[Rfam]
RNA sequence: AGCUGACGCAUUUUGGUGACUUCCCCCGUCACCGCCGCGUUGGCUGUUCCCCUCUGGAGGUUUUUGACCUUCACACCUGACGGGCCUCGGAGAAAUCCGCAGGCCCUUUUU
Numbered sequence: 001a002g003c004u005g006a007c008g009c010a011u012u013u014u015g016g017u018g019a020c021u022u023c024c025c026c027c028g029u030c031a032c033c034g035c036c037g038c039g040u041u042g043g044c045u046g047u048u049c050c051c052c053u054c055u056g057g058a059g060g061u062u063u064u065u066g067a068c069c070u071u072c073a074c075a076c077c078u079g080a081c082g083g084g085c086c087u088c089g090g091a092g093a094a095a096u097c098c099g100c101a102g103g104c105c106c107u108u109u110u111u
Stems, first nucleotide, its partner, number of pairs: 001045005007039003016035003055073007082106006088099004